The family of this 99-nucleotide sequence from Candidatus Enterococcus wittei is "Bacterial small signal recognition particle RNA".
The family's RNA type in Rfam is non-coding RNA gene.
Its Rfam clan is "SRP clan".
[Rfam]
RNA sequence: CCGAAAGGCUAGGACAAUGGUGGGCUUGUGAAGCGUGUCAGAUCCGGAAGGAAGCAGCACUAAGCAGGUGCCGCCAUGUGUCUGAUUGAUUGUUUACGA
Numbered sequence: 001c002c003g004a005a006a007g008g009c010u011a012g013g014a015c016a017a018u019g020g021u022g023g024g025c026u027u028g029u030g031a032a033g034c035g036u037g038u039c040a041g042a043u044c045c046g047g048a049a050g051g052a053a054g055c056a057g058c059a060c061u062a063a064g065c066a067g068g069u070g071c072c073g074c075c076a077u078g079u080g081u082c083u084g085a086u087u088g089a090u091u092g093u094u095u096a097c098g099a
Stems, first nucleotide, its partner, number of pairs: 004094002007091002010085001012083003015078001017077006024069006035060004043052003

Record summary
From the family's description: The signal recognition particle (SRP) is a universally conserved ribonucleoprotein involved in the co-translational targeting of proteins to membranes. On this family, see Righetti et al., Proc Natl Acad Sci U S A 2016: "Temperature-responsive in vitro RNA structurome of Yersinia pseudotuberculosis". The family's consensus secondary structure is taken from published work. Lineage of the source: Bacteria > Bacillati > Bacillota > Enterococcaceae > Enterococcus.